This 105-nucleotide RNA from Peribacillus muralis belongs to the Rfam family "Purine riboswitch aptamer". It scores 75 bits against the family's covariance model. Gene Ontology term of the family: purine nucleobase biosynthetic process. On this family, see Reining et al., Nature 2013: "Three-state mechanism couples ligand and temperature sensing in riboswitches". NCBI's taxonomy places the organism under Bacteria, Bacillota, Bacilli, Bacillaceae, Peribacillus.
[Rfam]
RNA sequence: AUAAUCGUACAUAUCAUUACUCGUAUAAGCUUGGAAAUAUGGUCCGAGCGUUUCUACCUGGUUCCCAUCCGAAAGAACUGGACUACGAGUUAAAGUAUCCUCCUG
Numbered sequence: 001a002u003a004a005u006c007g008u009a010c011a012u013a014u015c016a017u018u019a020c021u022c023g024u025a026u027a028a029g030c031u032u033g034g035a036a037a038u039a040u041g042g043u044c045c046g047a048g049c050g051u052u053u054c055u056a057c058c059u060g061g062u063u064c065c066c067a068u069c070c071g072a073a074a075g076a077a078c079u080g081g082a083c084u085a086c087g088a089g090u091u092a093a094a095g096u097a098u099c100c101u102c103c104u105g
Stems, first nucleotide, its partner, number of pairs: 019090007029049007058081007